[Rfam]
RNA sequence: AUGAAACCGGCAGAAAAAAUGCAGACAAAGCCAUUUAAGGAAGAGACAGAGGAACCUCAGUUUGGAAAAUCUCCCCAACAGUUUGUUUAGCUUGGCCAUGAGAAGCAAGGAGGAGACAAAACGGCAAGUCAUAUAUCGGCAUCAGGCUCGUGUUUUUCGAGUUCU
Numbered sequence: 001a002u003g004a005a006a007c008c009g010g011c012a013g014a015a016a017a018a019a020u021g022c023a024g025a026c027a028a029a030g031c032c033a034u035u036u037a038a039g040g041a042a043g044a045g046a047c048a049g050a051g052g053a054a055c056c057u058c059a060g061u062u063u064g065g066a067a068a069a070u071c072u073c074c075c076c077a078a079c080a081g082u083u084u085g086u087u088u089a090g091c092u093u094g095g096c097c098a099u100g101a102g103a104a105g106c107a108a109g110g111a112g113g114a115g116a117c118a119a120a121a122c123g124g125c126a127a128g129u130c131a132u133a134u135a136u137c138g139g140c141a142u143c144a145g146g147c148u149c150g151u152g153u154u155u156u157u158c159g160a161g162u163u164c165u
Stems, first nucleotide, its partner, number of pairs: 035067002082120005096113002145163005

The family of this 165-nucleotide RNA is "Early nodulin 40". Pairs were carried over by alignment from the consensus structure, which is taken from published work. It is one of the family's seed sequences. By type it is a non-coding RNA gene.